Shown here is a 262-nucleotide RNA sequence from Acanthoscelides obtectus, a member of the family "Arthropod 7SK RNA". By type it is a non-coding RNA gene. Pairs were carried over by alignment from the consensus structure, which is taken from published work.

RNA sequence: GGAGGUGUGUGUCAGUGAUGGCACGCUGAACAUCGAUCGCACGGUUGAUACGCUGAUGCAGAUCUGCUCAGAAAGUGCAUCACGAAGGUCGAUCCAGCAACCAUGGAUGUGCUGCCGAUGCCCUGUCGCACGGUAGCCAAACGUGGCUGCUCGAACGCCAUUUCCAAAAUUAACUUUAAGGGGUUACGGACGUGGGUCAUUUCUAUUUAGGACACCUCCAGAUACUGGCACUGCGGUUGAAUGCAGUAUGCCAUUUUUUUUG
Number, nucleotide and partner (000 for none) at each position: 001g219002g218003a217004g216005g215006u214007g213008u212009g000010u000011g000012u000013c000014a000015g083016u082017g081018a080019u079020g000021g000022c000023a000024c000025g000026c071027u070028g069029a000030a000031c066032a065033u000034c000035g064036a063037u062038c061039g059040c058041a057042c000043g000044g000045u055046u000047g000048a000049u000050a000051c000052g000053c000054u000055g045056a000057u041058g040059c039060a000061g038062a037063u036064c035065u032066g031067c000068u000069c028070a027071g026072a000073a000074a000075g000076u000077g000078c000079a019080u018081c017082a016083c015084g000085a000086a000087g000088g000089u000090c000091g000092a000093u000094c000095c000096a000097g000098c000099a000100a000101c000102c000103a000104u000105g000106g000107a000108u000109g000110u000111g000112c000113u000114g000115c000116c000117g000118a000119u000120g000121c000122c000123c000124u000125g000126u000127c000128g000129c000130a000131c000132g000133g000134u000135a000136g000137c000138c000139a000140a000141a000142c000143g000144u000145g000146g000147c000148u000149g000150c000151u000152c000153g000154a000155a000156c000157g000158c000159c000160a000161u000162u000163u000164c000165c000166a000167a000168a000169a000170u000171u000172a000173a000174c000175u000176u000177u000178a000179a000180g000181g000182g000183g000184u000185u000186a000187c000188g000189g000190a000191c000192g000193u000194g000195g000196g000197u000198c000199a000200u000201u000202u000203c000204u000205a000206u000207u000208u000209a000210g000211g000212a008213c007214a006215c005216c004217u003218c002219c001220a000221g000222a000223u000224a000225c000226u000227g252228g251229c250230a247231c246232u245233g244234c243235g000236g000237u000238u000239g000240a000241a000242u000243g234244c233245a232246g231247u230248a000249u000250g229251c228252c227253a000254u000255u000256u000257u000258u000259u000260u000261u000262g000